RNA sequence: CCGCGCUAGACGGGGAACUUGCGGUGCCCUGUAACCCGCAAUCCGCAUUAGCGGGGUCGAAUUCCCGUCCUGAGGCCUUCUCCGUGUGGGGCCAGGUCUGGGUAAUCGAUGUUGAGGAUUGGGUCCUGCGCAACGAGAACUUCCGAACCGUGUCAGGUCCUGACGGAAGCAGCACUAAGGAAGACCUCUCGUGUGCCGCAGGGGUGCCUGAUCUGAGUCGGUUGCCCAGGAGCCGCCCGGGCGGAAAGGUCGAAGGCGGGUGCGCGG
Number, nucleotide and partner (000 for none) at each position: 001c267002c266003g265004c264005g263006c262007u000008a000009g058010a057011c056012g030013g029014g028015g027016a000017a025018c024019u023020u000021g000022c000023g019024g018025u017026g000027c015028c014029c013030u012031g000032u000033a000034a000035c055036c054037c053038g052039c051040a000041a000042u000043c000044c000045g000046c000047a000048u000049u000050a000051g039052c038053g037054g036055g035056g011057u010058c009059g000060a000061a000062u000063u000064c260065c259066c258067g257068u000069c256070c255071u254072g000073a000074g251075g250076c249077c248078u247079u000080c000081u245082c244083c243084g242085u241086g000087u239088g238089g237090g236091g000092c000093c000094a000095g233096g000097u000098c229099u228100g227101g226102g225103u224104a000105a000106u000107c221108g219109a218110u217111g000112u000113u000114g000115a000116g214117g213118a212119u211120u210121g209122g208123g207124u206125c202126c201127u200128g199129c198130g197131c193132a192133a000134c191135g190136a189137g188138a187139a000140c183141u182142u181143c180144c179145g000146a000147a000148c000149c000150g175151u174152g173153u172154c000155a000156g000157g000158u167159c166160c165161u000162g000163a000164c000165g160166g159167a158168a000169g000170c000171a000172g153173c152174a151175c150176u000177a000178a000179g144180g143181a142182a141183g140184a000185c000186c000187u138188c137189u136190c135191g134192u132193g131194u000195g000196c000197c130198g129199c128200a127201g126202g125203g000204g000205u000206g124207c123208c122209u121210g120211a119212u118213c117214u116215g000216a000217g110218u109219c108220g000221g107222u000223u000224g103225c102226c101227c100228a099229g098230g000231a000232g000233c095234c000235g000236c090237c089238c088239g087240g000241g085242c084243g083244g082245a081246a000247a078248g077249g076250u075251c074252g000253a000254a071255g070256g069257c067258g066259g065260g064261u000262g006263c005264g004265c003266g002267g001
The family of this 267-nucleotide RNA from Polycladomyces abyssicola is "Bacterial large signal recognition particle RNA". Pairs were carried over by alignment from the consensus structure, which is taken from published work.